[Rfam]
RNA sequence: CUCUGUCUGUGAGGGAGACAGGGCAAAGGAG
Numbered sequence: 001c002u003c004u005g006u007c008u009g010u011g012a013g014g015g016a017g018a019c020a021g022g023g024c025a026a027a028g029g030a031g
Stems, first nucleotide, its partner, number of pairs: 001023008
Dot-bracket structure: ((((((((.......))))))))........
Overview
This 31-nucleotide RNA sequence from Sinosuthora webbiana belongs to the Rfam family "L31-Firmicutes ribosomal protein leader". The source organism's lineage runs through Eukaryota, Eumetazoa, Gnathostomata, Coelurosauria and Sinosuthora. The family is grouped with related families in Rfam's "Ribosomal Protein L31 Leader clan". The family's consensus secondary structure is taken from published work. The literature on the family includes a 2020 paper in BMC Microbiol by Eckert and Weinberg, "Discovery of 20 novel ribosomal leader candidates in bacteria and archaea".